[Rfam]
RNA sequence: CUGCGUAGGACUUUCACGCAUUAAGUUGCAAGGGGGAUGGGCAUGGGGCCCAUCCGGUCGUACGUGCGAAAGG
Numbered sequence: 001c002u003g004c005g006u007a008g009g010a011c012u013u014u015c016a017c018g019c020a021u022u023a024a025g026u027u028g029c030a031a032g033g034g035g036g037a038u039g040g041g042c043a044u045g046g047g048g049c050c051c052a053u054c055c056g057g058u059c060g061u062a063c064g065u066g067c068g069a070a071a072g073g
Stems, first nucleotide, its partner, number of pairs: 002066006009059004014033002018029003035055008